[Rfam]
Nucleotides: 045
Base pairs, nucleotide, nucleotide: 007026008025009024010023016037
Number, partner (000 for none) and nucleotide at each position: 001000a002000a003000c004000a005000a006000c007026g008025u009024g010023g011000u012000u013000c014000g015000c016037a017000a018000c019000c020000c021000u022000c023010c024009c025008a026007c027000c028000a029000u030000a031000a032000a033000a034000a035000a036000c037016u038000a039000g040000g041000u042000c043000a044000a045000a